BsrG: a 282-nucleotide RNA from Psychrobacillus psychrotolerans. Its family is annotated with toxin activity and autolysis in the Gene Ontology. Rfam's curators write: bsrE, bsrG and bsrH pair through intermolecular interactions with antisense sRNAs. Lineage of the source: Bacteria > Bacillati > Bacilli > Caryophanales > Psychrobacillus. On this family, see Saito et al., Gene 2008: "Novel small RNA-encoding genes in the intergenic regions of Bacillus subtilis". Rfam classes the family as a small RNA.

RNA sequence: AGUAUAGAUUGAUCUUCUCAUGGGUGGACGGCACAAUUUUUUUUACUUUCUGUUUAACGACCGGUACAGAAGGGGGUGCUGCUUUUGACGAUAUUUGAAUCGCUCGUAAUUAUGAUUAGUUUUUCUUCUCUAAUCAUUGCAUUGAUUACGCUGACCUUUUCAAUGACACGAAAAAAGUAAUCCACCUAUGAGUUAGCGCUCGGAUGGAUUACUUAAUCUCUUUGCCGACACCCUUGAAGGGAAUCAGUCUAUUUUACCGACCGGAUGCUACUAACAUCCGGU
Numbered sequence: 001a002g003u004a005u006a007g008a009u010u011g012a013u014c015u016u017c018u019c020a021u022g023g024g025u026g027g028a029c030g031g032c033a034c035a036a037u038u039u040u041u042u043u044u045a046c047u048u049u050c051u052g053u054u055u056a057a058c059g060a061c062c063g064g065u066a067c068a069g070a071a072g073g074g075g076g077u078g079c080u081g082c083u084u085u086u087g088a089c090g091a092u093a094u095u096u097g098a099a100u101c102g103c104u105c106g107u108a109a110u111u112a113u114g115a116u117u118a119g120u121u122u123u124u125c126u127u128c129u130c131u132a133a134u135c136a137u138u139g140c141a142u143u144g145a146u147u148a149c150g151c152u153g154a155c156c157u158u159u160u161c162a163a164u165g166a167c168a169c170g171a172a173a174a175a176a177g178u179a180a181u182c183c184a185c186c187u188a189u190g191a192g193u194u195a196g197c198g199c200u201c202g203g204a205u206g207g208a209u210u211a212c213u214u215a216a217u218c219u220c221u222u223u224g225c226c227g228a229c230a231c232c233c234u235u236g237a238a239g240g241g242a243a244u245c246a247g248u249c250u251a252u253u254u255u256a257c258c259g260a261c262c263g264g265a266u267g268c269u270a271c272u273a274a275c276a277u278c279c280g281g282u
Base pairs, nucleotide, nucleotide: 001255002254004252005251007249008248009247011245015228016227017192018191019190020189021188022187023186024185026182027181034078035077037075038074039073041072042071043070044069087155089153090152092150100115101114102113126145127144202221203220204219231241232240260282261281262280263279264278265277266276267275269273